[Rfam]
Nucleotides: 115
Base pairs, nucleotide, nucleotide: 006103009100010099011066012065013064014063017034018033019032020031021030041060042059043058044057045056072096073095074094075093077090078089079088080087
Number, partner (000 for none) and nucleotide at each position: 001000c002000a003000a004000c005000g006103u007000c008000c009100g010099c011066g012065c013064g014063g015000g016000a017034g018033c019032g020031c021030a022000c023000a024000c025000c026000u027000u028000g029000g030021u031020g032019c033018g034017c035000u036000g037000a038000g039000a040000g041060g042059a043058c044057g045056g046000c047000u048000g049000u050000a051000u052000g053000g054000c055000g056045c057044c058043g059042u060041c061000g062000a063014c064013c065012g066011u067000a068000u069000g070000a071000a072096c073095c074094u075093g076000a077090c078089c079088g080087g081000g082000u083000a084000a085000u086000g087080c088079c089078g090077g091000c092000g093075u094074a095073g096072g097000g098000a099010g100009u101000a102000a103006g104000c105000a106000g107000a108000u109000g110000a111000c112000u113000g114000c115000a

The record is a 115-nucleotide sequence from Mycolicibacterium llatzerense, which matches "TPP riboswitch aptamer (THI element)" in Rfam. The match comes from Rfam's covariance-model search (56 bits). The source organism's lineage runs through Bacteria, Bacillati, Actinomycetota, Mycobacterium and Mycobacterium (subgen. Mycolicibacterium).